[Rfam]
RNA sequence: GCUUACCUUCGGGGCGGGGUGCAAUUCCCCACCGGCGGUGAUCGGCCUCCUUGCGAUACGAUCGAGAGGACAGCCGUCAGUCCGUGACCCGCAGUAGCGCCUUUCAUUCCGAUGACGGCGCGAGGCGGUGGAUCCGGUGAGAAUCCGGGACCGACAGUGACAGUCUGGAUGGGAGAAGGAAGCG
Numbered sequence: 001g002c003u004u005a006c007c008u009u010c011g012g013g014g015c016g017g018g019g020u021g022c023a024a025u026u027c028c029c030c031a032c033c034g035g036c037g038g039u040g041a042u043c044g045g046c047c048u049c050c051u052u053g054c055g056a057u058a059c060g061a062u063c064g065a066g067a068g069g070a071c072a073g074c075c076g077u078c079a080g081u082c083c084g085u086g087a088c089c090c091g092c093a094g095u096a097g098c099g100c101c102u103u104u105c106a107u108u109c110c111g112a113u114g115a116c117g118g119c120g121c122g123a124g125g126c127g128g129u130g131g132a133u134c135c136g137g138u139g140a141g142a143a144u145c146c147g148g149g150a151c152c153g154a155c156a157g158u159g160a161c162a163g164u165c166u167g168g169a170u171g172g173g174a175g176a177a178g179g180a181a182g183c184g
Base pairs, nucleotide, nucleotide: 003182004181006179007178008177009176010175017029018028019027031164032163033153034152035085036084037083038082089128090127091126092125133149134148135147136146137145155167156166157165

Annotation:
The record is a 184-nucleotide RNA sequence from Cohnella rhizosphaerae, which matches "FMN riboswitch aptamer (RFN element)" in Rfam. The organism belongs to Cohnella, within Bacteria. The family has 146 seed sequences and 6,230 matches in Rfam 15.1.